[Rfam]
RNA sequence: CGGGAAAGAAGACCCUGUUGAGCUUGACUCUAGUUGACAUUGUGAAGAGACAUAGAGGGUGUAGGAUAAGUGGAGUGUAGGGACCUCUCUGCACGCCGGUGAAUACCACUACCUUUAUCGUUUCUUUACUUAAUCAAUGAAGCGGAAUUGGGAUUUAGUUCCCACAUUCUAGCCUUAAGGUUCCUUUGCGAACUGAUCCGCGUUGAUGACAUUGUCAGGUGGGGAGUUUGGCUGGGCGGCACAUCUGUUAAAAGAUAACGCAGGUGUCCUAAGGGGGCUCAUCGAGAACAGAAAUCUCGAGUAGAAUAAAGGGUAAAAGCCCCCUUGAUUUUGAUUUUCAGUGUGAAUACAAACCAUGAAGUGUGGCCUAUCGAUCCUUUGUUGCCUCGAAAUUUGAGGACAGAGUGCCAGAAAAGUUACCACAGGGAUAACUGGCUUGUGGCAGCCAAGCGUUCAUAGCGACGUUGCUUUUUGAUUCUUCGAUGUCGGCUCUUCCUAUCAUACCGAAGCAGAAUUCGGUAAGCGUUGGAUUGUUCACCCACUAAUAGGGAACGUGAGCUGGUUUAGACCGUCGUGAGACAGGUUAGUUUACCCUA
Numbered sequence: 001c002g003g004g005a006a007a008g009a010a011g012a013c014c015c016u017g018u019u020g021a022g023c024u025u026g027a028c029u030c031u032a033g034u035u036g037a038c039a040u041u042g043u044g045a046a047g048a049g050a051c052a053u054a055g056a057g058g059g060u061g062u063a064g065g066a067u068a069a070g071u072g073g074a075g076u077g078u079a080g081g082g083a084c085c086u087c088u089c090u091g092c093a094c095g096c097c098g099g100u101g102a103a104u105a106c107c108a109c110u111a112c113c114u115u116u117a118u119c120g121u122u123u124c125u126u127u128a129c130u131u132a133a134u135c136a137a138u139g140a141a142g143c144g145g146a147a148u149u150g151g152g153a154u155u156u157a158g159u160u161c162c163c164a165c166a167u168u169c170u171a172g173c174c175u176u177a178a179g180g181u182u183c184c185u186u187u188g189c190g191a192a193c194u195g196a197u198c199c200g201c202g203u204u205g206a207u208g209a210c211a212u213u214g215u216c217a218g219g220u221g222g223g224g225a226g227u228u229u230g231g232c233u234g235g236g237c238g239g240c241a242c243a244u245c246u247g248u249u250a251a252a253a254g255a256u257a258a259c260g261c262a263g264g265u266g267u268c269c270u271a272a273g274g275g276g277g278c279u280c281a282u283c284g285a286g287a288a289c290a291g292a293a294a295u296c297u298c299g300a301g302u303a304g305a306a307u308a309a310a311g312g313g314u315a316a317a318a319g320c321c322c323c324c325u326u327g328a329u330u331u332u333g334a335u336u337u338u339c340a341g342u343g344u345g346a347a348u349a350c351a352a353a354c355c356a357u358g359a360a361g362u363g364u365g366g367c368c369u370a371u372c373g374a375u376c377c378u379u380u381g382u383u384g385c386c387u388c389g390a391a392a393u394u395u396g397a398g399g400a401c402a403g404a405g406u407g408c409c410a411g412a413a414a415a416g417u418u419a420c421c422a423c424a425g426g427g428a429u430a431a432c433u434g435g436c437u438u439g440u441g442g443c444a445g446c447c448a449a450g451c452g453u454u455c456a457u458a459g460c461g462a463c464g465u466u467g468c469u470u471u472u473u474g475a476u477u478c479u480u481c482g483a484u485g486u487c488g489g490c491u492c493u494u495c496c497u498a499u500c501a502u503a504c505c506g507a508a509g510c511a512g513a514a515u516u517c518g519g520u521a522a523g524c525g526u527u528g529g530a531u532u533g534u535u536c537a538c539c540c541a542c543u544a545a546u547a548g549g550g551a552a553c554g555u556g557a558g559c560u561g562g563u564u565u566a567g568a569c570c571g572u573c574g575u576g577a578g579a580c581a582g583g584u585u586a587g588u589u590u591a592c593c594c595u596a
Stems, first nucleotide, its partner, number of pairs: 002595003006590002014426004019422002021418005027227004034218006042129010052118007069110005075094007133207005143200004150162005179194005230242001231240003243265006268366002273324006279305002282300006306314002329353003334348004355363003377405006385399004435476001437474001439473001441469006450460002487561005492554001493551005500525001503520006527541003531537001567585004571580003
The record is a 596-nucleotide part of an RNA from Schizosaccharomyces octosporus, which matches "Eukaryotic large subunit ribosomal RNA" in Rfam. Lineage of the source: Eukaryota > Opisthokonta > Ascomycota > Taphrinomycotina > Schizosaccharomyces octosporus.